Annotation
The family of this 77-nucleotide sequence from Megalops atlanticus is "mir-216 microRNA precursor family". The match comes from Rfam's covariance-model search (65 bits). Taxonomically the source falls in Megalops (Eukaryota, Opisthokonta, Chordata, Elopiformes). Its family is annotated with miRNA-mediated post-transcriptional gene silencing and RISC complex in the Gene Ontology. On this family, see Lim et al., Science 2003: "Vertebrate microRNA genes". The family is grouped with related families in Rfam's "mir-216 clan".
RNA sequence: AUCUCGCGUAAUCUCAGCUGGCAACUGUGAGUUUUAAAGAAGUUCCUCUCACAGUGGCUACUGGGAUUAUGUUAAAC
Numbered sequence: 001a002u003c004u005c006g007c008g009u010a011a012u013c014u015c016a017g018c019u020g021g022c023a024a025c026u027g028u029g030a031g032u033u034u035u036a037a038a039g040a041a042g043u044u045c046c047u048c049u050c051a052c053a054g055u056g057g058c059u060a061c062u063g064g065g066a067u068u069a070u071g072u073u074a075a076a077c
Stems, first nucleotide, its partner, number of pairs: 004074001006072002009069009020059003023055001026053006